Notes: The record is a 66-nucleotide sequence from Kurthia sp. 11kri321, which matches "Bacillaceae-1 RNA" in Rfam. By type it is a small RNA. The match comes from Rfam's covariance-model search (39 bits).
RNA sequence: GCAAGUGGAAGAUAAGUCAAGAUUGCAACGUCCUGUUGCUGACUUAUCCAACCUACAUUAUGUAGG
Numbered sequence: 001g002c003a004a005g006u007g008g009a010a011g012a013u014a015a016g017u018c019a020a021g022a023u024u025g026c027a028a029c030g031u032c033c034u035g036u037u038g039c040u041g042a043c044u045u046a047u048c049c050a051a052c053c054u055a056c057a058u059u060a061u062g063u064a065g066g
Stems, first nucleotide, its partner, number of pairs: 011048007025039005052066005